[Rfam]
RNA: ZMP/ZTP riboswitch aptamer (pfl RNA motif)
Organism: Flexivirga caeni
RNA sequence: CUAGGCCCACACGACUGGCGCAGGUGGGUAACCACCGGGGAGUGGAAUCGCGCGUAUCGCCCGCCUGGGUGCGCGCA
Dot-bracket structure: ...((..(.(((..(([[[[...((((....))))..))..))))..))....(((((...]]]]..))))).....